A member of the RNA family "mir-16 microRNA precursor family" from Sinocyclocheilus grahami, 81 nucleotides long. Its Rfam clan is "mir-15 clan".
[Rfam]
RNA sequence: GCUUGACAGUAGCAGCACAUCAAUAUUGGCAGCUGCCCUCUCCCUGGGUUGCCAGUAUGGUUUGUGCUGCUCCCGUCAGAC
Numbered sequence: 001g002c003u004u005g006a007c008a009g010u011a012g013c014a015g016c017a018c019a020u021c022a023a024u025a026u027u028g029g030c031a032g033c034u035g036c037c038c039u040c041u042c043c044c045u046g047g048g049u050u051g052c053c054a055g056u057a058u059g060g061u062u063u064g065u066g067c068u069g070c071u072c073c074c075g076u077c078a079g080a081c
Stems, first nucleotide, its partner, number of pairs: 001081001003079001005077003011071008023058012